[Rfam]
RNA sequence: AAUAAGAAAACGAGGUCCAAAAAUGACUAAUACACAAGCUUCUCUUAACUUGUUGUUGAAGGAGGGCUCACACUAGCUAAUUUAGCUAAAUGUGUGAGUCCUCUUUGGCGUUAGUCAUUGACGAGGAUGAAGAGACGUCCUCAGGACGUCUUUUU
Dot-bracket structure: ......................(((((......(((((.((.....)))))))..........((.((((((((((((.....)))))...))))))).))............)))))....(((((((......))))))).............
Background
The family of this 155-nucleotide RNA sequence from Lactococcus cremoris is "leu/phe leader RNA from Lactococcus". The base pairs follow the family's consensus structure, which is taken from published work. The organism belongs to Lactococcus cremoris subsp. cremoris, within Bacteria. It is one of the family's seed sequences. Rfam links the family to the GO term regulation of gene expression.